[Rfam]
RNA sequence: CGGCUGUAGCUAAAUUGAUGAAAGAAGUUUACUGGCCGUUUAUUGUGAGGUUUUUAUAAAUCUCAGUCGAUAGAUCUGCUUACCGAACUUCUCACAAAA
Numbered sequence: 001c002g003g004c005u006g007u008a009g010c011u012a013a014a015u016u017g018a019u020g021a022a023a024g025a026a027g028u029u030u031a032c033u034g035g036c037c038g039u040u041u042a043u044u045g046u047g048a049g050g051u052u053u054u055u056a057u058a059a060a061u062c063u064c065a066g067u068c069g070a071u072a073g074a075u076c077u078g079c080u081u082a083c084c085g086a087a088c089u090u091c092u093c094a095c096a097a098a099a
Stems, first nucleotide, its partner, number of pairs: 023092007034080003038076001040074002042071004

The family of this 99-nucleotide RNA from Macleaya cordata is "Small nucleolar RNA snoR109". It is annotated as an H/ACA-box small nucleolar RNA. For this family Rfam cites "Experimental RNomics: identification of 140 candidates for small non-messenger RNAs in the plant Arabidopsis thaliana" (Marker et al., Curr Biol, 2002). The source organism's lineage runs through Eukaryota, Streptophytina, Tracheophyta, Magnoliopsida and Macleaya.